[Rfam]
Nucleotides: 046
Base pairs, nucleotide, nucleotide: 001020002019003018004017005016006015007014008013033045034044035043036042037041
Number, partner (000 for none) and nucleotide at each position: 001020c002019c003018c004017a005016c006015g007014g008013c009000u010000g011000a012000c013008g014007c015006c016005g017004u018003g019002g020001g021000c022000u023000u024000u025000g026000u027000u028000c029000u030000u031000u032000c033045g034044c035043c036042g037041c038000u039000c040000c041037g042036c043035g044034g045033c046000u